[Rfam]
RNA sequence: AUGGAUGUGAUGAUCCUUUCCCCAGAUGAUCGACUUUGAUUAAAACUGUGCUAUUUUAGAUAUCUCAUUUUGAGAAUCAAGCCAGGAAUCUGAUCCAU
Dot-bracket structure: (((((........................................................................................)))))
Numbered sequence: 001a002u003g004g005a006u007g008u009g010a011u012g013a014u015c016c017u018u019u020c021c022c023c024a025g026a027u028g029a030u031c032g033a034c035u036u037u038g039a040u041u042a043a044a045a046c047u048g049u050g051c052u053a054u055u056u057u058a059g060a061u062a063u064c065u066c067a068u069u070u071u072g073a074g075a076a077u078c079a080a081g082c083c084a085g086g087a088a089u090c091u092g093a094u095c096c097a098u
Stems, first nucleotide, its partner, number of pairs: 001098005